[Rfam]
RNA sequence: AUAGAUGGCGCGGGGUGUCGUAAAAGCGGCUGAGAAUUACCCGUUGAACUUGAUCUGGUUCAUACCAGCGUAAGAACGCCUGAUGUCCAAAAA
Numbered sequence: 001a002u003a004g005a006u007g008g009c010g011c012g013g014g015g016u017g018u019c020g021u022a023a024a025a026g027c028g029g030c031u032g033a034g035a036a037u038u039a040c041c042c043g044u045u046g047a048a049c050u051u052g053a054u055c056u057g058g059u060u061c062a063u064a065c066c067a068g069c070g071u072a073a074g075a076a077c078g079c080c081u082g083a084u085g086u087c088c089a090a091a092a093a
Base pairs, nucleotide, nucleotide: 007080008079009078010077011043012042013041014040017030018029019028020027021026049074050073051072052071055068056067057066058065
Overview:
The record is a 93-nucleotide RNA from Legionella longbeachae, which matches "TPP riboswitch aptamer (THI element)" in Rfam. Lineage of the source: Bacteria > Legionellales > Legionellaceae > Legionella > Legionella longbeachae.